[Rfam]
RNA sequence: AGCAGAGUAGAAAUAUGUGCGUUAAGUGCCGACCGGACGGGGAGUUGCCGGUGGGACGAAAAGUGAUAACUUGCGGUACAUAUUUUGCAUCCCGCUGCU
Numbered sequence: 001a002g003c004a005g006a007g008u009a010g011a012a013a014u015a016u017g018u019g020c021g022u023u024a025a026g027u028g029c030c031g032a033c034c035g036g037a038c039g040g041g042g043a044g045u046u047g048c049c050g051g052u053g054g055g056a057c058g059a060a061a062a063g064u065g066a067u068a069a070c071u072u073g074c075g076g077u078a079c080a081u082a083u084u085u086u087g088c089a090u091c092c093c094g095c096u097g098c099u
Stems, first nucleotide, its partner, number of pairs: 001099005010086010020075003026057002029055002032052005040092003044088001061072004
Dot-bracket structure: (((((....(((((((((((((...((.((.(((((...[[[.[...))))).))))...((((....))))))).)))))))))).].]]]..)))))